The family of this 96-nucleotide sequence from Branchiostoma floridae is "mir-2060 microRNA precursor family". Pairs were carried over by alignment from the consensus structure, which was predicted with RNAalifold. The organism belongs to Branchiostoma, within Eukaryota.
RNA sequence: UUGUGUGUGUGUGUCUGUGUUGUUCAGCACCAAGGACAGGUAUGUUUGUGUGUGUGUGUGUCUGUUGUUCAGCACCAAGGACAGGUAUGUUUGUGU
Numbered sequence: 001u002u003g004u005g006u007g008u009g010u011g012u013g014u015c016u017g018u019g020u021u022g023u024u025c026a027g028c029a030c031c032a033a034g035g036a037c038a039g040g041u042a043u044g045u046u047u048g049u050g051u052g053u054g055u056g057u058g059u060g061u062c063u064g065u066u067g068u069u070c071a072g073c074a075c076c077a078a079g080g081a082c083a084g085g086u087a088u089g090u091u092u093g094u095g096u
Stems, first nucleotide, its partner, number of pairs: 004087003008083003018077002021074004026069004031064002034057001036053003040049003